[Rfam]
RNA: IMPDH RNA
RNA sequence: UUAAAGAGAUACCGGGUGUCGGGCACUUCCUCCUCCAGCUGUUCUCCUUCACAGCUGACAGUCCCCCGCACCGCACAGGCGGUAUCUCGCUUCGUGUGCAAAAAAGCUCAUC
Number, nucleotide and partner (000 for none) at each position: 001u000002u000003a000004a000005a000006g000007a087008g086009a085010u084011a083012c082013c081014g000015g072016g071017u070018g069019u068020c000021g000022g063023g062024c061025a000026c000027u000028u000029c000030c000031u000032c000033c000034u000035c000036c000037a056038g055039c054040u053041g052042u051043u000044c000045u000046c000047c000048u000049u000050c000051a042052c041053a040054g039055c038056u037057g000058a000059c000060a000061g024062u023063c022064c000065c000066c000067c000068g019069c018070a017071c016072c015073g097074c096075a095076c094077a092078g091079g090080c089081g013082g012083u011084a010085u009086c008087u007088c000089g080090c079091u078092u077093c000094g076095u075096g074097u073098g000099c000100a000101a000102a000103a000104a000105a000106g000107c000108u000109c000110a000111u000112c000